[Rfam]
RNA sequence: GGGAUGUGCUCAGAGCAGGUGGCCUGAAGAAUGGCUUCUCUGUUUACAACACACCCAACAGGAAUUGAGGGUCAUUGUGACAAGGGGCACAACACGUGUGACUUCCCUCUGAGCAACUGCCCUCUAUAC
Numbered sequence: 001g002g003g004a005u006g007u008g009c010u011c012a013g014a015g016c017a018g019g020u021g022g023c024c025u026g027a028a029g030a031a032u033g034g035c036u037u038c039u040c041u042g043u044u045u046a047c048a049a050c051a052c053a054c055c056c057a058a059c060a061g062g063a064a065u066u067g068a069g070g071g072u073c074a075u076u077g078u079g080a081c082a083a084g085g086g087g088c089a090c091a092a093c094a095c096g097u098g099u100g101a102c103u104u105c106c107c108u109c110u111g112a113g114c115a116a117c118u119g120c121c122c123u124c125u126a127u128a129c
Stems, first nucleotide, its partner, number of pairs: 002056002005053004013045007021037001022035003069122004076115003081111002084104003088100004